RNA sequence: UGCCCCGGGUACGGCGUAAAACUGCGGCCAGCCAGUGGGAUGCGACCCCGUAAAAAAGCGUA
Numbered sequence: 001u002g003c004c005c006c007g008g009g010u011a012c013g014g015c016g017u018a019a020a021a022c023u024g025c026g027g028c029c030a031g032c033c034a035g036u037g038g039g040a041u042g043c044g045a046c047c048c049c050g051u052a053a054a055a056a057a058g059c060g061u062a
Stems, first nucleotide, its partner, number of pairs: 001016004009025003036050004
This 62-nucleotide sequence belongs to the Rfam family "GP20-b RNA".
It is annotated as a cis-regulatory element.